[Rfam]
RNA: Eukaryotic small subunit ribosomal RNA, nucleotides 694 to 1289
Organism: Helcion dunkeri
RNA sequence: GGAGUUGCUGCGGUUAAAAAGCUCGUCGUUGGAUCUCGGAGGCGGCACGGUCGGGCGCGAUACGCUGCGGGUCCGACCGGCGAUUUCUCGGCCGUCCCUAACCGGCGCGCGGGGCGAGGUGGACCUCGCGGUCCUGCCUCGUUUUUCUCCUUCGCGGGAGAGAACCCGCCGCAUUUUUUGUCUACCUUGAAAAAAUUAGAGUGCUAAAGGCAGGCUAAAACCCCGAGCCUGAAUAUUUCGUGCAUGGAAUAAGCGGGGAUGCUCUUUUUCCGGAGGGUGGUCCGGCCGACUUGGCGACGUCGCUUUCGCUGUCGGCUUUGCCGGAGAGCUAGGAUUCGAGAGGAACGGUGGGGGGCGAGCGUACCGGGCGGGGAGAGGUGAAAUUUUGUGAUCCGCUCGGGACGACUCGAAGCGAAAGCGCUGGCCCCGGACGUCUUCCUUAAUCCAGAACGAAGGUGGGUGGAGCAAAGACGAUCAGAUACCGUCGUAGUACCGACGGUAAACGCUGCCGACCGGGCCGCGGACGAGGCUCGAGAACAGCGGUUAUGGACCCGUCCGUGGCGGCUUCGGGCAACCUGAGAGUUUACGGGUUCCGG
Numbered sequence: 001g002g003a004g005u006u007g008c009u010g011c012g013g014u015u016a017a018a019a020a021g022c023u024c025g026u027c028g029u030u031g032g033a034u035c036u037c038g039g040a041g042g043c044g045g046c047a048c049g050g051u052c053g054g055g056c057g058c059g060a061u062a063c064g065c066u067g068c069g070g071g072u073c074c075g076a077c078c079g080g081c082g083a084u085u086u087c088u089c090g091g092c093c094g095u096c097c098c099u100a101a102c103c104g105g106c107g108c109g110c111g112g113g114g115c116g117a118g119g120u121g122g123a124c125c126u127c128g129c130g131g132u133c134c135u136g137c138c139u140c141g142u143u144u145u146u147c148u149c150c151u152u153c154g155c156g157g158g159a160g161a162g163a164a165c166c167c168g169c170c171g172c173a174u175u176u177u178u179u180g181u182c183u184a185c186c187u188u189g190a191a192a193a194a195a196u197u198a199g200a201g202u203g204c205u206a207a208a209g210g211c212a213g214g215c216u217a218a219a220a221c222c223c224c225g226a227g228c229c230u231g232a233a234u235a236u237u238u239c240g241u242g243c244a245u246g247g248a249a250u251a252a253g254c255g256g257g258g259a260u261g262c263u264c265u266u267u268u269u270c271c272g273g274a275g276g277g278u279g280g281u282c283c284g285g286c287c288g289a290c291u292u293g294g295c296g297a298c299g300u301c302g303c304u305u306u307c308g309c310u311g312u313c314g315g316c317u318u319u320g321c322c323g324g325a326g327a328g329c330u331a332g333g334a335u336u337c338g339a340g341a342g343g344a345a346c347g348g349u350g351g352g353g354g355g356c357g358a359g360c361g362u363a364c365c366g367g368g369c370g371g372g373g374a375g376a377g378g379u380g381a382a383a384u385u386u387u388g389u390g391a392u393c394c395g396c397u398c399g400g401g402a403c404g405a406c407u408c409g410a411a412g413c414g415a416a417a418g419c420g421c422u423g424g425c426c427c428c429g430g431a432c433g434u435c436u437u438c439c440u441u442a443a444u445c446c447a448g449a450a451c452g453a454a455g456g457u458g459g460g461u462g463g464a465g466c467a468a469a470g471a472c473g474a475u476c477a478g479a480u481a482c483c484g485u486c487g488u489a490g491u492a493c494c495g496a497c498g499g500u501a502a503a504c505g506c507u508g509c510c511g512a513c514c515g516g517g518c519c520g521c522g523g524a525c526g527a528g529g530c531u532c533g534a535g536a537a538c539a540g541c542g543g544u545u546a547u548g549g550a551c552c553c554g555u556c557c558g559u560g561g562c563g564g565c566u567u568c569g570g571g572c573a574a575c576c577u578g579a580g581a582g583u584u585u586a587c588g589g590g591u592u593c594c595g596g
Stems, first nucleotide, its partner, number of pairs: 011595003019592001021451001023449002028444003342438003346433002349430001353427004358422002360404002364400008375386003412419002456497002459494003465491002470486004508591003511584003515565001519560008528552002569576002